About this RNA
The family of this 99-nucleotide sequence from Candidatus Kurthia intestinigallinarum is "SAM riboswitch aptamer (S box leader)". NCBI's taxonomy places the organism under Bacteria, Bacillota, Bacilli, Caryophanales, Kurthia.

[Rfam]
RNA sequence: UUCUUAUCGAGAGAGAUUGAGGGACGUGGCCCAUUGACAUCUCAGCAACCCCCAUUGGAAGGUGCUACAUCCGCGAAGACAUAGUCUUACAGAUAAGAA
Numbered sequence: 001u002u003c004u005u006a007u008c009g010a011g012a013g014a015g016a017u018u019g020a021g022g023g024a025c026g027u028g029g030c031c032c033a034u035u036g037a038c039a040u041c042u043c044a045g046c047a048a049c050c051c052c053c054a055u056u057g058g059a060a061g062g063u064g065c066u067a068c069a070u071c072c073g074c075g076a077a078g079a080c081a082u083a084g085u086c087u088u089a090c091a092g093a094u095a096a097g098a099a
Base pairs, nucleotide, nucleotide: 001099002098003097004096005095006094007093008092013043014042015041016040017039021032022031023030027073028072029071044066045065046064047063049062050061051058052057070091076088077087078086079085080084